Background:
The record is a 282-nucleotide sequence from Sciurus vulgaris, which matches "Mason-Pfizer monkey virus packaging signal" in Rfam. The family's consensus secondary structure was predicted with PFOLD. Its family is annotated with viral genome packaging in the Gene Ontology. From the family's description: This family represents a group of sequences that are related to the Mason-Pfizer monkey virus (MPMV) packaging signal. A search with the family's covariance model found it, with a score of 163 bits. Taxonomically the source falls in Sciurus (Eukaryota, Eumetazoa, Chordata, Mammalia).

[Rfam]
RNA sequence: UGGCGCCCAACGGUAUGGCUUUGUAUACGGGGGAAUUCGCGAGGGAAGAGGUGUGUAAGUGUUCAGGCCAAAGAAAAAAAAAGUGAAAGUCAGUUCAAGAAAGUUCGCUGGGGGAGCCUGUCACACCAUUCUUAAAGGUACAGUAGCGCCUAAAGGGACAAGAAUUAAGUAAGCAUAAAGUUUUUGUUAACCAAUUUAAAGAAGCUUUAAAGACACAGGGAGUAAAGGUUAAGAGUAAUGAUCUUUUUAAGUUUUUUGACCUUAUUAAGGACACCUGUCCGU
Dot-bracket structure: .....(((....(((..........)))..)))....(.(.......).)......................................(((..((.....(.......((.((.......)).))...)....)).)))....(.(..(((...))).).)....(((((.................................)).)))......((((((((..((((((.......))))))......))))))))........(.((((....)))).)